[Rfam]
RNA: Metazoan signal recognition particle RNA
Organism: Trichinella spiralis
RNA sequence: GCCGGGCGUUGUGGCGAGCGCUUGUAAUCCAGCUACUUGGAGGCUUGGACCAGUGGAUGUCUUGAGAGCGGGAGUUCUGUGCCUGGUUGUGCUCAUGUUGACCGAGCGUCCGCAUCAAGCAUGGCGUCAACAUGGUUGAUUCUGAGGAGUCAGAGCCGACCAGGUUCGUCAAAGAGGGUCGGACCGGCCGAGGGCGGAAACGCAGCAGGCAAAAGUCCCCGCGUCAGCGCAGUGAUGGGAUAGCGCUCGCGAAUAAGCCGCCGGGUACAGCCCGCUCAAGAAACUCAGACCUGGUCCUUA
Numbered sequence: 001g002c003c004g005g006g007c008g009u010u011g012u013g014g015c016g017a018g019c020g021c022u023u024g025u026a027a028u029c030c031a032g033c034u035a036c037u038u039g040g041a042g043g044c045u046u047g048g049a050c051c052a053g054u055g056g057a058u059g060u061c062u063u064g065a066g067a068g069c070g071g072g073a074g075u076u077c078u079g080u081g082c083c084u085g086g087u088u089g090u091g092c093u094c095a096u097g098u099u100g101a102c103c104g105a106g107c108g109u110c111c112g113c114a115u116c117a118a119g120c121a122u123g124g125c126g127u128c129a130a131c132a133u134g135g136u137u138g139a140u141u142c143u144g145a146g147g148a149g150u151c152a153g154a155g156c157c158g159a160c161c162a163g164g165u166u167c168g169u170c171a172a173a174g175a176g177g178g179u180c181g182g183a184c185c186g187g188c189c190g191a192g193g194g195c196g197g198a199a200a201c202g203c204a205g206c207a208g209g210c211a212a213a214a215g216u217c218c219c220c221g222c223g224u225c226a227g228c229g230c231a232g233u234g235a236u237g238g239g240a241u242a243g244c245g246c247u248c249g250c251g252a253a254u255a256a257g258c259c260g261c262c263g264g265g266u267a268c269a270g271c272c273c274g275c276u277c278a279a280g281a282a283a284c285u286c287a288g289a290c291c292u293g294g295u296c297c298u299u300a
Base pairs, nucleotide, nucleotide: 001044002043003042004023005022006021007020008019009018010017028041029040030039047297048296049295050294051293052292053291058287059286062283063282066277067276068275069274070273071272072271077270078269079268080267081266082265083264084263088260089259092257093256095254096253098251103249104248105247106246107245108244109243110239111238113237114236115235116234117233119230120229122226123225124224125223126222127221129166130165131164133162134161135160136159137158138157140155141154142153143152144151145150169173176219177218178217180215187210188209189208194203195202196201